[Rfam]
RNA sequence: UGCACUGUAUGGUAUCUGCAUCCAGCAGUCUGUUCCUGAUGGCAUGUUCAAAAAGCAGUGCAAUAAUAAUUCAGCAUAUGGCAUCGUUGGUUCUCAAGCAACUGUGCUUGCUAAACCUGGUAUUUUUGUUGAGACAAAU
Numbered sequence: 001u002g003c004a005c006u007g008u009a010u011g012g013u014a015u016c017u018g019c020a021u022c023c024a025g026c027a028g029u030c031u032g033u034u035c036c037u038g039a040u041g042g043c044a045u046g047u048u049c050a051a052a053a054a055g056c057a058g059u060g061c062a063a064u065a066a067u068a069a070u071u072c073a074g075c076a077u078a079u080g081g082c083a084u085c086g087u088u089g090g091u092u093c094u095c096a097a098g099c100a101a102c103u104g105u106g107c108u109u110g111c112u113a114a115a116c117c118u119g120g121u122a123u124u125u126u127u128g129u130u131g132a133g134a135c136a137a138a139u
Base pairs, nucleotide, nucleotide: 002061003060004059005058006057007056015054017052018047019046020045021044023042024040026038027037028036064128065127066126068124069123070122071120072119073118074117080108081107082106083105084104

The record is a 139-nucleotide sequence from Podarcis muralis, which matches "Small nucleolar RNA SNORA8" in Rfam. Lineage of the source: Eukaryota > Deuterostomia > Sarcopterygii > Dipnotetrapodomorpha > Podarcis. By type it is an H/ACA-box small nucleolar RNA. About the family: ACA8 is a member of the H/ACA class of snoRNA that guide the sites of modification of uridines to pseudouridines.